[Rfam]
RNA sequence: GCUCAUGAUGACUCUGUCCAAUCACCUGAGAUGUAGUGGAACUGAGACCCUGUUUACAGGGAGAACCCCUUGGGGAAAUUGCAUUUCACAUGAAAUUAAUGGAUAUUUCUGAGGC
Numbered sequence: 001g002c003u004c005a006u007g008a009u010g011a012c013u014c015u016g017u018c019c020a021a022u023c024a025c026c027u028g029a030g031a032u033g034u035a036g037u038g039g040a041a042c043u044g045a046g047a048c049c050c051u052g053u054u055u056a057c058a059g060g061g062a063g064a065a066c067c068c069c070u071u072g073g074g075g076a077a078a079u080u081g082c083a084u085u086u087c088a089c090a091u092g093a094a095a096u097u098a099a100u101g102g103a104u105a106u107u108u109c110u111g112a113g114g115c
Stems, first nucleotide, its partner, number of pairs: 001115003048061005
Small nucleolar RNA Z278: a 115-nucleotide RNA from Papaver somniferum. The match comes from Rfam's covariance-model search (48 bits). Rfam describes the family as follows. snoZ278 is a C/D box small nucleolar RNA. Its methylation guide targets have not been reported. It is annotated as a C/D-box small nucleolar RNA. Pairs were carried over by alignment from the consensus structure, which was predicted with PFOLD. The literature on the family includes a 2003 paper in Nucleic Acids Res by Chen et al., "The high diversity of snoRNAs in plants: identification and comparative study of 120 snoRNA genes from Oryza sativa". The source organism's lineage runs through Eukaryota, Streptophyta, Embryophyta, Papaveraceae and Papaver.